glmS glucosamine-6-phosphate activated ribozyme aptamer: a 170-nucleotide RNA sequence from Ktedonosporobacter rubrisoli. About the family: This entry contains a glucosamine-6-phosphate activated ribozyme that is found in the mRNA for GlmS. GlmS is an enzyme that uses fructose-6-phosphate and glutamine to generate glucosamine-6-phosphate. Pairs were carried over by alignment from the consensus structure, which is taken from published work. It is annotated as a riboswitch.
RNA sequence: UUGGUAUUAGUAGCGCAUGGGCCGGGCUCUAAGGAGGAAGCCACGGCUGACGAGGUGGAGGCUGUUCGGAUCAGUCAGCGGGGAGCCUCCAGGGUUGGAUCACGCCCCUGAGAAGGGAGUACUCAAAACCGUCUGGUAACGGGCGGCACAAAAUACUCUCAGUGAUGUAG
Numbered sequence: 001u002u003g004g005u006a007u008u009a010g011u012a013g014c015g016c017a018u019g020g021g022c023c024g025g026g027c028u029c030u031a032a033g034g035a036g037g038a039a040g041c042c043a044c045g046g047c048u049g050a051c052g053a054g055g056u057g058g059a060g061g062c063u064g065u066u067c068g069g070a071u072c073a074g075u076c077a078g079c080g081g082g083g084a085g086c087c088u089c090c091a092g093g094g095u096u097g098g099a100u101c102a103c104g105c106c107c108c109u110g111a112g113a114a115g116g117g118a119g120u121a122c123u124c125a126a127a128a129c130c131g132u133c134u135g136g137u138a139a140c141g142g143g144c145g146g147c148a149c150a151a152a153a154u155a156c157u158c159u160c161a162g163u164g165a166u167g168u169a170g
Stems, first nucleotide, its partner, number of pairs: 020048005026042001029040001058089005067078001069076002090110005115160007129146007